[Rfam]
RNA sequence: GGGACCGGCGCUCCGGGCGACACCUACCAAGGACUGUGAAGUAAGGACUAAAACCUCACCCCACCUGGCCUCUCCCCAAAGAGUCACCCAUAUGGGGGACUUGGGCGCGCGCGGGUGGAAGGUGGGGGUAUCGUCGCGGCAAACAACCUCACACAGACGAACGGCCCCGGCAGGGACGCCAAUCCCGACCGAGGCCUGACCACCCAGGAAGAGUUGACCUUCCCA
Dot-bracket structure: ......((.(.....((.(......................................................).))......((.(((....))).))..........(((((...................)))))........................((((...(..((((......))))...)..))))....).))..(((((.......)))))..
Numbered sequence: 001g002g003g004a005c006c007g008g009c010g011c012u013c014c015g016g017g018c019g020a021c022a023c024c025u026a027c028c029a030a031g032g033a034c035u036g037u038g039a040a041g042u043a044a045g046g047a048c049u050a051a052a053a054c055c056u057c058a059c060c061c062c063a064c065c066u067g068g069c070c071u072c073u074c075c076c077c078a079a080a081g082a083g084u085c086a087c088c089c090a091u092a093u094g095g096g097g098g099a100c101u102u103g104g105g106c107g108c109g110c111g112c113g114g115g116u117g118g119a120a121g122g123u124g125g126g127g128g129u130a131u132c133g134u135c136g137c138g139g140c141a142a143a144c145a146a147c148c149u150c151a152c153a154c155a156g157a158c159g160a161a162c163g164g165c166c167c168c169g170g171c172a173g174g175g176a177c178g179c180c181a182a183u184c185c186c187g188a189c190c191g192a193g194g195c196c197u198g199a200c201c202a203c204c205c206a207g208g209a210a211g212a213g214u215u216g217a218c219c220u221u222c223c224c225a
Stems, first nucleotide, its partner, number of pairs: 007204002010201001016077002019074001084099002087096003110138005163196004170190001173186004207223005
This 225-nucleotide sequence from Actinacidiphila oryziradicis belongs to the Rfam family "Streptomyces sRNA 4677". About the family: Located in the intergenic region between anti-sigma factor SCO4677 gene and a putative regulatory protein gene SCO4676. scr4677 expression requires the SCO4677 activity and scr4677 sRNA itself seem to affect the levels of the SCO4676-associated transcripts. NCBI's taxonomy places the organism under Bacteria, Bacillati, Actinomycetes, Streptomycetaceae, Actinacidiphila. A reference for the family is Hindra et al. (2014), "Complex intra-operonic dynamics mediated by a small RNA in Streptomyces coelicolor", PLoS One. The base pairs follow the family's consensus structure.